[Rfam]
RNA sequence: UUAAAAUAAAGGCAAAGCAUGGGAAACUGUGUGACGCAAAGCUAUAGGGCCUUUAAAAUGGCAGCCAGUUGCAGUA
Number, nucleotide and partner (000 for none) at each position: 001u000002u000003a000004a000005a000006a000007u000008a000009a000010a000011g000012g037013c036014a000015a000016a000017g032018c031019a030020u029021g028022g027023g000024a000025a000026a000027c022028u021029g020030u019031g018032u017033g000034a000035c000036g013037c012038a000039a000040a070041g069042c068043u067044a000045u000046a000047g066048g065049g062050c061051c060052u000053u000054u000055a000056a000057a000058a000059u000060g051061g050062c049063a000064g000065c048066c047067a043068g042069u041070u040071g000072c000073a000074g000075u000076a000

About this RNA
Rfam assigns this 76-nucleotide RNA sequence from Cetobacterium somerae to the family "c-di-GMP-I riboswitch aptamer". Its Rfam clan is "c-di-GMP_I riboswitch clan". Gene Ontology term of the family: cyclic-di-GMP binding. The match comes from Rfam's covariance-model search (62 bits). GEMM was predicted in a large-scale screen for bacterial structured RNA regulatory elements.